[Rfam]
RNA: c-di-GMP-I riboswitch aptamer
RNA sequence: UACCGAUAAAGGCAAACCUAGCGAAAGCUAGCGACGCAAAACUAAAGGGCCUUCCUUGACGCGAGAUGACGCGGCCAAGAUGGCAGCCAGUUUCCGAA
Numbered sequence: 001u002a003c004c005g006a007u008a009a010a011g012g013c014a015a016a017c018c019u020a021g022c023g024a025a026a027g028c029u030a031g032c033g034a035c036g037c038a039a040a041a042c043u044a045a046a047g048g049g050c051c052u053u054c055c056u057u058g059a060c061g062c063g064a065g066a067u068g069a070c071g072c073g074g075c076c077a078a079g080a081u082g083g084c085a086g087c088c089a090g091u092u093u094c095c096g097a098a
Base pairs, nucleotide, nucleotide: 012037013036018031019030020029021028022027040092041091042090043089047088048087049084050083051082056078057077058076